[Rfam]
RNA sequence: ACCUGUGAUGGGCGUCCAUCAGGCGUUCAUGACAACAGACAGAGACCGUGCCUUGGGAAGAUCUGGGCACAUCAGGGUGUU
Numbered sequence: 001a002c003c004u005g006u007g008a009u010g011g012g013c014g015u016c017c018a019u020c021a022g023g024c025g026u027u028c029a030u031g032a033c034a035a036c037a038g039a040c041a042g043a044g045a046c047c048g049u050g051c052c053u054u055g056g057g058a059a060g061a062u063c064u065g066g067g068c069a070c071a072u073c074a075g076g077g078u079g080u081u
Stems, first nucleotide, its partner, number of pairs: 004034003008030007016023002048070006055063001
The record is an 81-nucleotide RNA sequence from Streptomyces sp. CC53, which matches "nrdJ RNA" in Rfam.